[Rfam]
RNA sequence: ACUGGAAAGCGCGGCGCCUUUCUGUAACCAGAGCUACUUCUGGGGUCGGGUUGUGUGAAUGACUUGAGGACGGGAGUCCUGCUUGUCGUUGUUCUAUGUUGAUCGAGCGUCCGCACGAAGCUUAGCAUCGACAUGGUGGGAGUUGAGGAAUCUCUCCUUCCAGGGCGACUAAGGAAGGUCGAACCGGCUGAGGCGCGAAUAGCGAGCAAGCCAAAGACCUCAUGUUUAGCAGUCGUGGGAUAGCGCUUGUGAAUAGACAGCGGCAGGUAGCCCGUCUAAUAUAGUUGGACCACAAUCUGU
Numbered sequence: 001a002c003u004g005g006a007a008a009g010c011g012c013g014g015c016g017c018c019u020u021u022c023u024g025u026a027a028c029c030a031g032a033g034c035u036a037c038u039u040c041u042g043g044g045g046u047c048g049g050g051u052u053g054u055g056u057g058a059a060u061g062a063c064u065u066g067a068g069g070a071c072g073g074g075a076g077u078c079c080u081g082c083u084u085g086u087c088g089u090u091g092u093u094c095u096a097u098g099u100u101g102a103u104c105g106a107g108c109g110u111c112c113g114c115a116c117g118a119a120g121c122u123u124a125g126c127a128u129c130g131a132c133a134u135g136g137u138g139g140g141a142g143u144u145g146a147g148g149a150a151u152c153u154c155u156c157c158u159u160c161c162a163g164g165g166c167g168a169c170u171a172a173g174g175a176a177g178g179u180c181g182a183a184c185c186g187g188c189u190g191a192g193g194c195g196c197g198a199a200u201a202g203c204g205a206g207c208a209a210g211c212c213a214a215a216g217a218c219c220u221c222a223u224g225u226u227u228a229g230c231a232g233u234c235g236u237g238g239g240a241u242a243g244c245g246c247u248u249g250u251g252a253a254u255a256g257a258c259a260g261c262g263g264c265a266g267g268u269a270g271c272c273c274g275u276c277u278a279a280u281a282u283a284g285u286u287g288g289a290c291c292a293c294a295a296u297c298u299g300u
Stems, first nucleotide, its partner, number of pairs: 001046003004023006028043003048298008060287005068277007079270013093257005099251001104249007111239002114237005120230003124226005129167002132164001134162003138158005145152002169173001176220005186212004194204003